[Rfam]
RNA sequence: UUGACAGCUCUGGAGGCUGAAGUCCUCUAUUUAUCCACAGAACGGGUAUGGCAUGGGCAGUGGCAGUACAAGCUUCCCCACCAAUGUGCCUCAACCCUGACCUGGAGGAACCACCUCUAGAGGUGAGAGGGUAGUUCAGGCUCCAAAACCAGCCCUGGGCCUUGUCCGCC
Numbered sequence: 001u002u003g004a005c006a007g008c009u010c011u012g013g014a015g016g017c018u019g020a021a022g023u024c025c026u027c028u029a030u031u032u033a034u035c036c037a038c039a040g041a042a043c044g045g046g047u048a049u050g051g052c053a054u055g056g057g058c059a060g061u062g063g064c065a066g067u068a069c070a071a072g073c074u075u076c077c078c079c080a081c082c083a084a085u086g087u088g089c090c091u092c093a094a095c096c097c098u099g100a101c102c103u104g105g106a107g108g109a110a111c112c113a114c115c116u117c118u119a120g121a122g123g124u125g126a127g128a129g130g131g132u133a134g135u136u137c138a139g140g141c142u143c144c145a146a147a148a149c150c151a152g153c154c155c156u157g158g159g160c161c162u163u164g165u166c167c168g169c170c
Base pairs, nucleotide, nucleotide: 002157003156007149011145012144013143014142015141017139018138019137020136021135024131025130027129028128030127031126032125033124034123035122038099039098040097048091051089052088053087054086055085062077063076065074066073102120103119104118105117106116107115108114
RNA: TUC338